Annotation
Rfam assigns this 64-nucleotide sequence from Geobacter sp. SVR to the family "Fluoride riboswitch aptamer (crcB RNA motif)". Lineage of the source: Bacteria > Desulfuromonadia > Geobacterales > Geobacteraceae > Geobacter. Its family is annotated with response to fluoride and positive regulation of gene expression in the Gene Ontology. The match comes from Rfam's covariance-model search (60 bits).

[Rfam]
RNA sequence: AAAACCAACGGCGAUGGAGUUCGCCAUAACCGCUUGCCCGCAAGCUGAUGACUCCUGCUCUUGA
Dot-bracket structure: .........[[[[..((((((]]]]......((((......))))....)))))).........
Numbered sequence: 001a002a003a004a005c006c007a008a009c010g011g012c013g014a015u016g017g018a019g020u021u022c023g024c025c026a027u028a029a030c031c032g033c034u035u036g037c038c039c040g041c042a043a044g045c046u047g048a049u050g051a052c053u054c055c056u057g058c059u060c061u062u063g064a
Stems, first nucleotide, its partner, number of pairs: 010025004016055006032045004